[Rfam]
RNA sequence: AUCAGGACUCGGGCCCCUCUGGCGUACUACCGGACAAUACGCGAUGUCGAGUCUCUUAA
Numbered sequence: 001a002u003c004a005g006g007a008c009u010c011g012g013g014c015c016c017c018u019c020u021g022g023c024g025u026a027c028u029a030c031c032g033g034a035c036a037a038u039a040c041g042c043g044a045u046g047u048c049g050a051g052u053c054u055c056u057u058a059a
Stems, first nucleotide, its partner, number of pairs: 006053007022042005028036001
A member of the RNA family "terC RNA" from Agrobacterium bohemicum, 59 nucleotides long. It is annotated as a cis-regulatory element. The family's consensus secondary structure is taken from published work. The organism belongs to Agrobacterium, within Bacteria.